[Rfam]
RNA sequence: GUGACCGUACUCUACAGGAUCUGUAUGCAGUACAUAACAUUUCUACGUUUUCAAAACGAGAUACAAUUCCAAAGUUAGUCGAUGAUUGUUAGUAGCUCUUCUUUUGAGUGAAGUGUGGCAUCAACUAUCUCUCAGAGUAGUUGUUGUCAGUUGAUGAUCUCGCCUGUCUCUUAUUCCAAGGACAUGGCAGGGAAGACGCUACAAGUCUGAUAACUU
Numbered sequence: 001g002u003g004a005c006c007g008u009a010c011u012c013u014a015c016a017g018g019a020u021c022u023g024u025a026u027g028c029a030g031u032a033c034a035u036a037a038c039a040u041u042u043c044u045a046c047g048u049u050u051u052c053a054a055a056a057c058g059a060g061a062u063a064c065a066a067u068u069c070c071a072a073a074g075u076u077a078g079u080c081g082a083u084g085a086u087u088g089u090u091a092g093u094a095g096c097u098c099u100u101c102u103u104u105u106g107a108g109u110g111a112a113g114u115g116u117g118g119c120a121u122c123a124a125c126u127a128u129c130u131c132u133c134a135g136a137g138u139a140g141u142u143g144u145u146g147u148c149a150g151u152u153g154a155u156g157a158u159c160u161c162g163c164c165u166g167u168c169u170c171u172u173a174u175u176c177c178a179a180g181g182a183c184a185u186g187g188c189a190g191g192g193a194a195g196a197c198g199c200u201a202c203a204a205g206u207c208u209g210a211u212a213a214c215u216u
Stems, first nucleotide, its partner, number of pairs: 001040003008032004016026001018024001044065001047062005073215005092202005097196006106161003116149005163186001165184002168181001